The record is a 182-nucleotide RNA from Nocardioides gansuensis, which matches "Actinobacteria sRNA Ms_IGR-5" in Rfam.
On this family, see Li et al., RNA 2013: "Identification of small RNAs in Mycobacterium smegmatis using heterologous Hfq".
Rfam classes the family as a small RNA.
It scores 107 bits against the family's covariance model.
Lineage of the source: Bacteria > Actinomycetota > Actinomycetes > Propionibacteriales > Nocardioides.
RNA sequence: ACACGGGAAAGGAGGUGGUCCGAGAAAUGAUUUCGUCUUGGAUGCGUGAGGUGGCUGUCCGCUAGGCAGUCGUCACCGACUGUCUGGCGAAUCCACCGCAGUCACCCGACCCGCAGGUCCUCUCCGGUUCCCAUCCGCCGGGGCGCCCCACAUCCGUGAGGCAGGCCUGCGGGUCGCUGCAU
Numbered sequence: 001a002c003a004c005g006g007g008a009a010a011g012g013a014g015g016u017g018g019u020c021c022g023a024g025a026a027a028u029g030a031u032u033u034c035g036u037c038u039u040g041g042a043u044g045c046g047u048g049a050g051g052u053g054g055c056u057g058u059c060c061g062c063u064a065g066g067c068a069g070u071c072g073u074c075a076c077c078g079a080c081u082g083u084c085u086g087g088c089g090a091a092u093c094c095a096c097c098g099c100a101g102u103c104a105c106c107c108g109a110c111c112c113g114c115a116g117g118u119c120c121u122c123u124c125c126g127g128u129u130c131c132c133a134u135c136c137g138c139c140g141g142g143g144c145g146c147c148c149c150a151c152a153u154c155c156g157u158g159a160g161g162c163a164g165g166c167c168u169g170c171g172g173g174u175c176g177c178u179g180c181a182u
Stems, first nucleotide, its partner, number of pairs: 014059006060089010071078002107176013122143006